[Rfam]
The record is a 365-nucleotide sequence from Paenibacillus zeisoli, which matches "transfer-messenger RNA" in Rfam. Bacterial tmRNA, also known as 10Sa RNA or SsrA, is named for its dual tRNA and mRNA-like properties. Its role is to liberate the mRNA from a stalled ribosome. To accomplish this part of the tmRNA is used as a reading frame that ends in a translation stop signal. The broken mRNA is replaced in the ribosome by the tmRNA and translation of the tmRNA leads to addition of a proteolysis tag to the incomplete protein enabling recognition by a protease. Recently a number of permuted tmRNA genes have been found encoded in two parts. tmRNAs have been identified in eubacteria and some chloroplasts but are absent from archaeal and eukaryote nuclear genomes. A search with the family's covariance model found it, with a score of 183 bits.
RNA sequence: GGGGGCGUUUAUGGAUUCGACGGGGGUAGAUCGAGCAUGGGUAGCGGGUAGUGGGGACGCGUCCACUUCAUCAACGCUAAAGCCAAUUAAACGGCAAACAAACAACUAACUACGCUGUAGCAGCUUAAUAACCUGCUCACGUGCUCCUCUCCUGCAUCGCCCAUGUGCCGGAUGUAGGGGCUAACUCUUAGUGGGAUACGCUGUCACAUCUCCGCCUGGGGUGUGCUGAAGAAGACAAUCAGGCUGACCCAACGUAUAGCCGGUUACAGGGCGAUACUCGGGUGACAUCAAAACUGUGACUACACCCGUAGAAGCUUAUGUGGCGUUGCCUUCGGACAGGGGUUCGACUCCCCUCGCCUCCAUUA
Number, nucleotide and partner (000 for none) at each position: 001g361002g360003g359004g358005g357006c356007g355008u000009u000010u000011a000012u000013g000014g000015a000016u000017u000018c000019g000020a000021c334022g333023g332024g331025g330026g329027u328028a327029g326030a000031u000032c000033g000034a000035g321036c320037a319038u318039g317040g316041g315042u314043a000044g000045c308046g307047g306048g305049u304050a067051g066052u065053g064054g063055g000056g000057a000058c000059g077060c076061g075062u074063c054064c053065a052066c051067u050068u000069c000070a000071u000072c000073a000074a062075c061076g060077c059078u000079a000080a000081a000082g000083c000084c000085a000086a000087u000088u000089a000090a000091a000092c000093g000094g000095c000096a000097a000098a000099c000100a000101a000102a000103c000104a000105a000106c000107u000108a000109a000110c000111u000112a000113c000114g000115c000116u000117g140118u139119a000120g136121c135122a134123g133124c000125u000126u000127a000128a000129u000130a000131a000132c000133c123134u122135g121136c120137u000138c000139a118140c117141g000142u000143g181144c180145u179146c178147c177148u176149c000150u172151c171152c170153u000154g168155c167156a166157u165158c000159g000160c195161c194162c193163a192164u191165g157166u156167g155168c154169c000170g152171g151172a150173u000174g000175u000176a148177g147178g146179g145180g144181c143182u000183a000184a000185c000186u000187c000188u000189u000190a000191g164192u163193g162194g161195g160196a000197u000198a000199c000200g000201c231202u230203g000204u228205c000206a000207c225208a224209u223210c000211u000212c000213c000214g244215c243216c242217u241218g240219g000220g000221g000222u000223g209224u208225g207226c000227u000228g204229a000230a202231g201232a000233a000234g000235a000236c000237a000238a000239u000240c218241a217242g216243g215244c214245u000246g000247a283248c282249c281250c280251a000252a278253c000254g000255u000256a000257u000258a000259g272260c271261c270262g000263g300264u299265u298266a297267c000268a000269g000270g261271g260272c259273g000274a000275u000276a000277c000278u252279c000280g250281g249282g248283u247284g000285a000286c000287a000288u000289c000290a000291a000292a000293a000294c000295u000296g000297u266298g265299a264300c263301u000302a000303c000304a049305c048306c047307c046308g045309u000310a000311g000312a000313a000314g042315c041316u040317u039318a038319u037320g036321u035322g000323g000324c000325g000326u029327u028328g027329c026330c025331u024332u023333c022334g021335g000336a000337c000338a354339g353340g352341g351342g350343u000344u000345c000346g000347a000348c000349u000350c342351c341352c340353c339354u338355c007356g006357c005358c004359u003360c002361c001362a000363u000364u000365a000

Background:
NCBI's taxonomy places the organism under Bacteria, Bacillati, Caryophanales, Paenibacillaceae, Paenibacillus.